[Rfam]
RNA sequence: UCGUCAAGGCUAACGGAAGAAGAGAGAGAGAGAGAGUACAGCUUUGGGUUCUUAAUAAAGGUCAUAUAUAUAAGAUCUUUUUCGACCAAGGCUGUACCCUCUCUCUUCGUCUCUUAGCAUCUUGAUGA
Numbered sequence: 001u002c003g004u005c006a007a008g009g010c011u012a013a014c015g016g017a018a019g020a021a022g023a024g025a026g027a028g029a030g031a032g033a034g035a036g037u038a039c040a041g042c043u044u045u046g047g048g049u050u051c052u053u054a055a056u057a058a059a060g061g062u063c064a065u066a067u068a069u070a071u072a073a074g075a076u077c078u079u080u081u082u083c084g085a086c087c088a089a090g091g092c093u094g095u096a097c098c099c100u101c102u103c104u105c106u107u108c109g110u111c112u113c114u115u116a117g118c119a120u121c122u123u124g125a126u127g128a
Base pairs, nucleotide, nucleotide: 005124006123009118012115013114015112016111017110019108020107021106022105023104024103025102026101027100028099036097037096038095039094040093041092042091043090044089